RNA: Small nucleolar RNA SNORA13
RNA sequence: UGCAUUUGUGUUGCCCAUUCAUUCCUAUCCAGAAUGAAUGUGGUGUCAGAAAAGGCAAACAGGGAAUCUUGUUCAGGCUGUUUAAGGAGCUGGUUAUUUACCUUUCUCCCCUGUGUUUUUGCAAGGACAAAA
Numbered sequence: 001u002g003c004a005u006u007u008g009u010g011u012u013g014c015c016c017a018u019u020c021a022u023u024c025c026u027a028u029c030c031a032g033a034a035u036g037a038a039u040g041u042g043g044u045g046u047c048a049g050a051a052a053a054g055g056c057a058a059a060c061a062g063g064g065a066a067u068c069u070u071g072u073u074c075a076g077g078c079u080g081u082u083u084a085a086g087g088a089g090c091u092g093g094u095u096a097u098u099u100a101c102c103u104u105u106c107u108c109c110c111c112u113g114u115g116u117u118u119u120u121g122c123a124a125g126g127a128c129a130a131a132a
Stems, first nucleotide, its partner, number of pairs: 002056002005053003009048002012045004016040008068125004075117002083113002086110002088107002092102002